[Rfam]
RNA sequence: GUCAAGAACUCGCCGUCAAGCCUACGGUUAUGACGGGAGCUUGUAAAAGCUCUAACUUGACCAGAUUAAGGUUCUAGAAACCUACGUUAUUUGAAUCAUGAAACCUGAAAAUACGUGCCAGUUUUCAGCUCUUUCGUACAGUUUUAAACAGGUGUAACGAGUUAAACCAGUGAACUGUGCCUAACAAGUUCAAAUAACAUUGUCGAGGCAAACUUGAC
Numbered sequence: 001g002u003c004a005a006g007a008a009c010u011c012g013c014c015g016u017c018a019a020g021c022c023u024a025c026g027g028u029u030a031u032g033a034c035g036g037g038a039g040c041u042u043g044u045a046a047a048a049g050c051u052c053u054a055a056c057u058u059g060a061c062c063a064g065a066u067u068a069a070g071g072u073u074c075u076a077g078a079a080a081c082c083u084a085c086g087u088u089a090u091u092u093g094a095a096u097c098a099u100g101a102a103a104c105c106u107g108a109a110a111a112u113a114c115g116u117g118c119c120a121g122u123u124u125u126c127a128g129c130u131c132u133u134u135c136g137u138a139c140a141g142u143u144u145u146a147a148a149c150a151g152g153u154g155u156a157a158c159g160a161g162u163u164a165a166a167c168c169a170g171u172g173a174a175c176u177g178u179g180c181c182u183a184a185c186a187a188g189u190u191c192a193a194a195u196a197a198c199a200u201u202g203u204c205g206a207g208g209c210a211a212a213c214u215u216g217a218c
Stems, first nucleotide, its partner, number of pairs: 001061006010038002013035001017032002039050004064204003068200001069083005086198011101134002105128008113214001116210004136180009148171002151168003155164003
The family of this 218-nucleotide RNA sequence from Nostoc flagelliforme is "HNH endonuclease-associated RNA and ORF (HEARO) RNA". The source organism's lineage runs through Bacteria, Bacillati, Nostocaceae, Nostoc and Nostoc flagelliforme. For this family Rfam cites "Exceptional structured noncoding RNAs revealed by bacterial metagenome analysis" (Weinberg et al., Nature, 2009).